[Rfam]
Background:
Shown here is a 72-nucleotide RNA from Medicago truncatula, a member of the family "MIR2629 microRNA precursor family". Its family is annotated with RISC complex and miRNA-mediated post-transcriptional gene silencing in the Gene Ontology. A search with the family's covariance model found it, with a score of 60 bits.
RNA sequence: UACUCGGCAUUUUCUCGGUAGUUAACUGCCGCCGAUUUACUAAAACUUCGGCAGUUAACUGUCGAAGGGCAU
Dot-bracket structure: ...........((.(((((((((((((((((.................))))))))))))))))).))....